[Rfam]
The family of this 59-nucleotide sequence from Pristionchus pacificus is "mir-8364 microRNA precursor family". Pairs were carried over by alignment from the consensus structure, which was predicted with RNAalifold. The match comes from Rfam's covariance-model search (67 bits). Lineage of the source: Eukaryota > Metazoa > Bilateria > Neodiplogasteridae > Pristionchus.
RNA sequence: UCUUCAUUUCACGUGCUCUCUCACUGAUCAGAUAGGUGAGAGUGCGUGAAAUGAAGAGA
Numbered sequence: 001u002c003u004u005c006a007u008u009u010c011a012c013g014u015g016c017u018c019u020c021u022c023a024c025u026g027a028u029c030a031g032a033u034a035g036g037u038g039a040g041a042g043u044g045c046g047u048g049a050a051a052u053g054a055a056g057a058g059a
Stems, first nucleotide, its partner, number of pairs: 001057007010048001012046006021039002